Small nucleolar RNA SNORD18: a 68-nucleotide RNA from Oryzias melastigma. Its family is annotated with RNA processing and nucleolus in the Gene Ontology. The base pairs follow the family's consensus structure, which was predicted with PFOLD. The match comes from Rfam's covariance-model search (62 bits). It is annotated as a C/D-box small nucleolar RNA.

RNA sequence: AAGCUGUGAUGAUUUUCCACUUCAGGUCCGUGUUUCUGAACUCUGAUUAUCAUGGAAGUUCUGAGUUU
Numbered sequence: 001a002a003g004c005u006g007u008g009a010u011g012a013u014u015u016u017c018c019a020c021u022u023c024a025g026g027u028c029c030g031u032g033u034u035u036c037u038g039a040a041c042u043c044u045g046a047u048u049a050u051c052a053u054g055g056a057a058g059u060u061c062u063g064a065g066u067u068u
Base pairs, nucleotide, nucleotide: 001068002067003066004065